[Rfam]
RNA: c-di-GMP-I riboswitch aptamer
Organism: Dethiobacter sp.
RNA sequence: GUUAAUAUUUGGCAAGCCUAGCGAAAGCUAGUGACGCAAAGCCAAGGGUCUAAAGCCGGUUACUAACCGGCUAUGACAGCCGGUUGCUAAG
Number, nucleotide and partner (000 for none) at each position: 001g000002u000003u000004a000005a000006u000007a000008u000009u000010u000011g000012g037013c036014a000015a000016g000017c000018c031019u030020a029021g028022c027023g000024a000025a000026a000027g022028c021029u020030a019031g018032u000033g000034a000035c000036g013037c012038a000039a000040a085041g084042c083043c082044a000045a000046g081047g080048g077049u076050c075051u000052a000053a000054a000055g071056c070057c069058g068059g067060u066061u065062a000063c000064u000065a061066a060067c059068c058069g057070g056071c055072u000073a000074u000075g050076a049077c048078a000079g000080c047081c046082g043083g042084u041085u040086g000087c000088u000089a000090a000091g000